A member of the RNA family "Small nucleolar RNA SNORD94" from Dryobates pubescens, 138 nucleotides long. A search with the family's covariance model found it, with a score of 99 bits. The organism belongs to Dryobates, within Eukaryota. By type it is a C/D-box small nucleolar RNA. Gene Ontology terms of the family: RNA processing and nucleolus. On this family, see Galardi et al., Mol Cell Biol 2002: "Purified box C/D snoRNPs are able to reproduce site-specific 2'-O-methylation of target RNA in vitro". The family's consensus secondary structure was predicted with RNAalifold.

RNA sequence: AAGGCGGUGAUGAUUGGCGCAGGGGUACGGACCUCAGCUGCACCAUGGGAGCUGAGUGCGGGCGGCGCGCGGCGCAGCUGGCGCGUGGCCGGCUGGCGGCGGCGGCUCUGCACGAGACUUUGCCAGAAGCUGAGCCAU
Numbered sequence: 001a002a003g004g005c006g007g008u009g010a011u012g013a014u015u016g017g018c019g020c021a022g023g024g025g026u027a028c029g030g031a032c033c034u035c036a037g038c039u040g041c042a043c044c045a046u047g048g049g050a051g052c053u054g055a056g057u058g059c060g061g062g063c064g065g066c067g068c069g070c071g072g073c074g075c076a077g078c079u080g081g082c083g084c085g086u087g088g089c090c091g092g093c094u095g096g097c098g099g100c101g102g103c104g105g106c107u108c109u110g111c112a113c114g115a116g117a118c119u120u121u122g123c124c125a126g127a128a129g130c131u132g133a134g135c136c137a138u
Base pairs, nucleotide, nucleotide: 001138003136004135005134